[Rfam]
RNA sequence: AAUCGACAUUAGCGAUUCGUUUUGUGAGCCUUGGCCUACGGCUAAAUAGGCAUUCAUCGCCAGUUCUUUCAUUUGUUCUUCGCCGAUCACUUUGGUGGUAAGAUUUUCAUAAUCAUCGGCUAAUUGACGUGCUUGUGAGGCUAAAUAGGCUGCAUUGCAAAUAUUGGGCGGCAUAUUAGCCAGAUCUUUGGU
Numbered sequence: 001a002a003u004c005g006a007c008a009u010u011a012g013c014g015a016u017u018c019g020u021u022u023u024g025u026g027a028g029c030c031u032u033g034g035c036c037u038a039c040g041g042c043u044a045a046a047u048a049g050g051c052a053u054u055c056a057u058c059g060c061c062a063g064u065u066c067u068u069u070c071a072u073u074u075g076u077u078c079u080u081c082g083c084c085g086a087u088c089a090c091u092u093u094g095g096u097g098g099u100a101a102g103a104u105u106u107u108c109a110u111a112a113u114c115a116u117c118g119g120c121u122a123a124u125u126g127a128c129g130u131g132c133u134u135g136u137g138a139g140g141c142u143a144a145a146u147a148g149g150c151u152g153c154a155u156u157g158c159a160a161a162u163a164u165u166g167g168g169c170g171g172c173a174u175a176u177u178a179g180c181c182a183g184a185u186c187u188u189u190g191g192u
Stems, first nucleotide, its partner, number of pairs: 005186002012032001014030001016028005033043003062077003079131001081129002084126004092119006099109001101107002133160003137156002140153002164183004
RNA: Yersinia sRNA 276